[Rfam]
RNA sequence: UGGCUGUGAUGACAACUAGAUUAUUUGUUCAUAAUUUAAUUUCAGUUAAGGACCAAAUCUGAUGACUUUAUUUGUGCAUGUCUGAGCCGG
Numbered sequence: 001u002g003g004c005u006g007u008g009a010u011g012a013c014a015a016c017u018a019g020a021u022u023a024u025u026u027g028u029u030c031a032u033a034a035u036u037u038a039a040u041u042u043c044a045g046u047u048a049a050g051g052a053c054c055a056a057a058u059c060u061g062a063u064g065a066c067u068u069u070a071u072u073u074g075u076g077c078a079u080g081u082c083u084g085a086g087c088c089g090g
Stems, first nucleotide, its partner, number of pairs: 001089004
The family of this 90-nucleotide sequence from Triticum aestivum is "small nucleolar RNA snoR126". The family's consensus secondary structure was predicted with RNAalifold. On this family, see Chen and Wu, Nucleic Acids Res 2009: "Mining small RNA sequencing data: a new approach to identify small nucleolar RNAs in Arabidopsis". Rfam classes the family as a C/D-box small nucleolar RNA. Taxonomically the source falls in Triticum (Eukaryota, Viridiplantae, Euphyllophyta, Triticinae).